[Rfam]
This 560-nucleotide part of an RNA from Thermoanaerobacter sp. X513 belongs to the Rfam family "Bacterial large subunit ribosomal RNA".
Nucleotides: 560
Base pairs, nucleotide, nucleotide: 008555009554010553011552012551013550014549015548016547017546023540024505025504028477029476030474031473032472033471034470035469036468037466038465039173040172047108048107049106050063051062052061069102070101071100072099073098074097075096078090079089080088113122114121115120123142124141125140126139127138128137129136144170145169146168147167148166149165150164151163152162177208178206179205180204181203182202188195189194218227219226230462231258232257233256234255235254241249242248261459262458263457264456269288270287271286272285273284274283275282295402296401298397299396300395301394302393310390311389312388313387314386318383320381321380322379323378325374326373327372331347332346333345335344336343350354356368357367358366409431410430411429412428413427414426415425417423438453439452440451441450442449492499493498515526516525517524518523
Number, partner (000 for none) and nucleotide at each position: 001000g002000a003000g004000g005000u006000a007000a008555g009554g010553g011552c012551a013550u014549a015548u016547g017546g018000u019000g020000g021000a022000u023540g024505c025504c026000u027000c028477g029476g030474c031473a032472c033471u034470u035469g036468g037466a038465g039173c040172c041000g042000a043000a044000g045000a046000a047108g048107g049106a050063c051062g052061c053000g054000g055000c056000a057000a058000g059000c060000g061052g062051c063050g064000a065000a066000a067000c068000g069102c070101u071100c072099c073098g074097g075096g076000g077000a078090g079089c080088c081000g082000c083000a084000a085000g086000c087000g088080g089079g090078c091000g092000a093000a094000g095000a096075u097074c098073c099072g100071g101070a102069g103000g104000u105000c106049u107048c108047c109000g110000a111000a112000u113122g114121g115120g116000g117000g118000a119000a120115c121114c122113c123142a124141c125140u126139c127138g128137a129136g130000g131000u132000a133000a134000u135000a136129c137128u138127c139126g140125a141124g142123u143000a144170u145169c146168c147167a148166c149165u150164g151163a152162u153000g154000a155000a156000c157000a158000c159000a160000u161000a162152g163151u164150c165149a166148g167147u168146g169145g170144a171000g172040g173039g174000g175000a176000a177208c178206c179205g180204c181203g182202c183000g184000a185000a186000c187000u188195g189194a190000a191000a192000c193000a194189u195188c196000u197000a198000a199000g200000u201000a202182g203181c204180g205179c206178g207000a208177g209000g210000a211000a212000a213000a214000g215000a216000a217000a218227g219226a220000a221000a222000a223000g224000a225000a226219u227218c228000g229000a230462u231258u232257c233256c234255c235254u236000a237000a238000g239000u240000a241249g242248c243000g244000g245000c246000g247000a248242g249241c250000g251000a252000a253000a254235g255234g256233g257232g258231a259000g260000a261459a262458g263457c264456c265000c266000a267000a268000a269288c270287c271286u272285g273284a274283c275282a276000c277000g278000g279000a280000a281000g282275u283274g284273u285272c286271a287270g288269g289000g290000g291000u292000u293000a294000g295402g296401g297000c298397c299396c300395a301394c302393c303000g304000u305000a306000g307000a308000a309000g310390u311389g312388a313387g314386u315000g316000a317000g318383u319000a320381c321380u322379c323378u324000a325374g326373g327372c328000g329000a330000a331347c332346g333345g334000a335344c336343c337000u338000g339000g340000a341000a342000a343336g344335g345333c346332c347331g348000g349000c350354c351000g352000a353000a354350g355000a356368a357367g358366g359000u360000g361000a362000a363000a364000g365000c366358c367357c368356u369000g370000u371000a372327g373326u374325c375000g376000a377000a378323a379322g380321g381320g382000g383318a384000a385000a386314g387313c388312u389311u390310g391000c392000a393302g394301g395300u396299g397298g398000g399000g400000a401296c402295c403000a404000g405000a406000g407000u408000a409431c410430c411429a412428c413427g414426g415425g416000a417423u418000a419000g420000g421000c422000g423417a424000c425415c426414c427413u428412g429411u430410g431409g432000g433000a434000a435000g436000g437000c438453g439452g440451g441450a442449g443000g444000a445000c446000c447000a448000c449442c450441u451440c452439c453438c454000a455000a456264g457263g458262c459261u460000a461000a462230a463000u464000a465038c466037u467000a468036c469035c470034a471033a472032g473031u474030g475000a476029c477028c478000g479000a480000u481000a482000g483000c484000g485000g486000a487000u488000a489000g490000u491000a492499c493498c494000g495000u496000g497000a498493g499492g500000g501000a502000a503000a504025g505024g506000u507000g508000a509000a510000a511000a512000g513000a514000a515526c516525c517524c518523c519000g520000g521000g522000a523518g524517g525516g526515g527000a528000g529000u530000g531000a532000a533000a534000g535000a536000g537000a538000a539000c540023c541000u542000g543000a544000a545000a546017c547016c548015a549014u550013a551012u552011g553010c554009c555008u556000a557000c558000a559000a560000g